[Rfam]
Shown here is a 46-nucleotide RNA from Acidobacteria bacterium AB60, a member of the family "Acido-Lenti-1 RNA". The base pairs follow the family's consensus structure, which is taken from published work. The match comes from Rfam's covariance-model search (40 bits). It is annotated as a small RNA.

RNA sequence: CCCCACGCUGAAGCGCGGGGCUAAUAUCCUUUGCGCCUACGGCGCA
Numbered sequence: 001c002c003c004c005a006c007g008c009u010g011a012a013g014c015g016c017g018g019g020g021c022u023a024a025u026a027u028c029c030u031u032u033g034c035g036c037c038u039a040c041g042g043c044g045c046a
Stems, first nucleotide, its partner, number of pairs: 001020004006015003033045005